RNA sequence: GAGCAAUAAUGAAAAUGUUUUACUACUGACCUUUAUAGCUAUGAAGCUUUCUAUACUUGAUCUGAGCUCA
Dot-bracket structure: ((((........(((.(((........))).)))...............................)))).
RNA: Small nucleolar RNA U2-30
Organism: Ovis aries